The family of this 95-nucleotide RNA sequence from Thiopseudomonas denitrificans is "Alpha operon ribosome binding site". The match comes from Rfam's covariance-model search (54 bits). The source organism's lineage runs through Bacteria, Pseudomonadota, Pseudomonadales, Pseudomonadaceae and Thiopseudomonas. Gene Ontology term of the family: ribosome binding. The bacterial alpha operon ribosome binding site is surrounded by this complex pseudoknotted structure. Translation of the mRNA produces 4 ribosomal protein products, one of which (S4) acts as a translational repressor by binding to the nested pseudoknot region. The mechanism of repression is thought to involve a conformational switch in the pseudoknot region and ribosome entrapment. For this family Rfam cites "Translational repression of the Escherichia coli alpha operon mRNA: importance of an mRNA conformational switch and a ternary entrapment complex" (Schlax et al., J Biol Chem, 2001).

RNA sequence: AACACGCAUGUCCCAUUUCUUGGCUUCCGGGGCGUGCGUUGCUGUCAAUUGGAGUUAAUUGAAUGGCCCGUAUUGCAGGCGUCAACAUUCCGGAU
Numbered sequence: 001a002a003c004a005c006g007c008a009u010g011u012c013c014c015a016u017u018u019c020u021u022g023g024c025u026u027c028c029g030g031g032g033c034g035u036g037c038g039u040u041g042c043u044g045u046c047a048a049u050u051g052g053a054g055u056u057a058a059u060u061g062a063a064u065g066g067c068c069c070g071u072a073u074u075g076c077a078g079g080c081g082u083c084a085a086c087a088u089u090c091c092g093g094a095u
Base pairs, nucleotide, nucleotide: 004039005038006037007036008035009034010033011032012031013030019079020078021077022068023067